[Rfam]
Nucleotides: 162
Stems, first nucleotide, its partner, number of pairs: 004162003010062002013059001016056010028044001029042005066121008076111003082105002084102008124154006134144004
Number, partner (000 for none) and nucleotide at each position: 001000u002000g003000a004162u005161g006160a007000a008000a009000g010062c011061g012000a013059c014000a015000a016056a017055a018054g019053g020052u021051c022050a023049u024048g025047c026000g027000g028044g029042c030041u031040g032039c033038g034000c035000u036000u037000g038033c039032g040031c041030a042029g043000g044028c045000a046000a047025g048024c049023a050022u051021g052020g053019c054018u055017u056016u057000g058000u059013g060000g061011c062010g063000c064000g065000c066121a067120a068119a069118a070117c071116a072115c073114c074000g075000a076111a077110a078109a079000g080000c081000a082105g083104u084102c085101a086100u087099u088098u089097u090096u091095c092000g093000c094000a095091g096090a097089a098088a099087a100086a101085u102084g103000a104083g105082c106000g107000g108000a109078u110077u111076u112000g113000a114073g115072g116071u117070g118069u119068u120067u121066u122000u123000a124154g125153g126152a127151u128150u129149g130000g131000g132000g133000a134144g135143u136142a137141c138000g139000a140000a141137g142136u143135a144134c145000g146000g147000a148000g149129c150128a151127a152126u153125c154124c155000g156000u157000g158000u159000c160006u161005c162004a
Shown here is a 162-nucleotide sequence from Catenibacillus scindens, a member of the family "Clostridiales-1 RNA". The match comes from Rfam's covariance-model search (93 bits). Taxonomically the source falls in Catenibacillus (Bacteria, Bacillati, Bacillota, Lachnospiraceae).